mir-26 microRNA precursor family: an 82-nucleotide RNA from Muraenolepis orangiensis. Pairs were carried over by alignment from the consensus structure, which was predicted with RNAalifold. A search with the family's covariance model found it, with a score of 69 bits.
[Rfam]
RNA sequence: CUGUGACCCUGUUCAAGUAAUCCAGGAUAGGCUCCGUGUCUCUUCUCCGGCCUAUACUUGGUUACUUGCUCCGGGGGGGCAG
Numbered sequence: 001c002u003g004u005g006a007c008c009c010u011g012u013u014c015a016a017g018u019a020a021u022c023c024a025g026g027a028u029a030g031g032c033u034c035c036g037u038g039u040c041u042c043u044u045c046u047c048c049g050g051c052c053u054a055u056a057c058u059u060g061g062u063u064a065c066u067u068g069c070u071c072c073g074g075g076g077g078g079g080c081a082g
Stems, first nucleotide, its partner, number of pairs: 002081003007076004011071001014068009024058002027055007